[Rfam]
The family of this 65-nucleotide RNA sequence is "GP20-b RNA". The sequence is in the family's curated seed alignment.

RNA sequence: GGUCUUUUACUGCUAGACCUAAAACAAGAAGACGUCAGGAGAUGGAGAACUCCUAUAAAAGCCUA
Numbered sequence: 001g002g003u004c005u006u007u008u009a010c011u012g013c014u015a016g017a018c019c020u021a022a023a024a025c026a027a028g029a030a031g032a033c034g035u036c037a038g039g040a041g042a043u044g045g046a047g048a049a050c051u052c053c054u055a056u057a058a059a060a061g062c063c064u065a
Stems, first nucleotide, its partner, number of pairs: 001019004010031002013028002038053004